[Rfam]
Rfam assigns this 102-nucleotide sequence from Striga hermonthica to the family "Small nucleolar RNA Z107/R87". Pairs were carried over by alignment from the consensus structure, which was predicted with RNAfold. Its family is annotated with RNA processing and nucleolus in the Gene Ontology. NCBI's taxonomy places the organism under Eukaryota, Mesangiospermae, eudicotyledons, Lamiales, Striga. On this family, see Chen et al., Nucleic Acids Res 2003: "The high diversity of snoRNAs in plants: identification and comparative study of 120 snoRNA genes from Oryza sativa". The family's RNA type in Rfam is C/D-box small nucleolar RNA.
RNA sequence: AAUUGCAAUGACGACUCGGAAAUUUCAAGCUCAACAGACCGGAUUGCAGGUUUCAAUUUAUUGCUUACUUGCAUGUCGAUAACCCCGCUGAGCUGAGCAAUU
Numbered sequence: 001a002a003u004u005g006c007a008a009u010g011a012c013g014a015c016u017c018g019g020a021a022a023u024u025u026c027a028a029g030c031u032c033a034a035c036a037g038a039c040c041g042g043a044u045u046g047c048a049g050g051u052u053u054c055a056a057u058u059u060a061u062u063g064c065u066u067a068c069u070u071g072c073a074u075g076u077c078g079a080u081a082a083c084c085c086c087g088c089u090g091a092g093c094u095g096a097g098c099a100a101u102u
Base pairs, nucleotide, nucleotide: 001102002101003100004099005098006097